Rfam assigns this 108-nucleotide RNA to the family "cow-rumen-2 RNA".
RNA sequence: AAUCGAGUUCUUUUUAGCAAAUUGGACAUACGGCGUCUUGGUUUUCAUGGGAUGUAGCUGCAAUACAGCAAGACCGAUUGCAUAAGCCCAUUGAAGUAAAUCCCUAAA
Numbered sequence: 001a002a003u004c005g006a007g008u009u010c011u012u013u014u015u016a017g018c019a020a021a022u023u024g025g026a027c028a029u030a031c032g033g034c035g036u037c038u039u040g041g042u043u044u045u046c047a048u049g050g051g052a053u054g055u056a057g058c059u060g061c062a063a064u065a066c067a068g069c070a071a072g073a074c075c076g077a078u079u080g081c082a083u084a085a086g087c088c089c090a091u092u093g094a095a096g097u098a099a100a101u102c103c104c105u106a107a108a
Base pairs, nucleotide, nucleotide: 002078007027008026009025010024013021040104041103043100044099045093047091048090049089050088051087059082060081061080062079064077068075

Pairs were carried over by alignment from the consensus structure, which is taken from published work.